[Rfam]
RNA sequence: UCGUCAGGUAGGAUAAUCCUUACCUGUUCCUCCUUCGGGAGGGCAGAUAGAACGUGAUGAUUGGAGCUCGCAUGACUCGUGAUUAAAGUCUUCGCGUAACCAGAGACUUACAACACUCUGGUUGCUCCUAUCUGAU
Numbered sequence: 001u002c003g004u005c006a007g008g009u010a011g012g013a014u015a016a017u018c019c020u021u022a023c024c025u026g027u028u029c030c031u032c033c034u035u036c037g038g039g040a041g042g043g044c045a046g047a048u049a050g051a052a053c054g055u056g057a058u059g060a061u062u063g064g065a066g067c068u069c070g071c072a073u074g075a076c077u078c079g080u081g082a083u084u085a086a087a088g089u090c091u092u093c094g095c096g097u098a099a100c101c102a103g104a105g106a107c108u109u110a111c112a113a114c115a116c117u118c119u120g121g122u123u124g125c126u127c128c129u130a131u132c133u134g135a136u
Stems, first nucleotide, its partner, number of pairs: 024046003028043006074092002078088001080085001096125009

This 136-nucleotide sequence from Dipodomys ordii belongs to the Rfam family "U8 small nucleolar RNA". A reference for the family is Peculis et al. (2001), "The U8 snoRNA gene family: identification and characterization of distinct, functional U8 genes in Xenopus", Gene. The base pairs follow the family's consensus structure, which is taken from published work. The organism belongs to Dipodomys, within Eukaryota.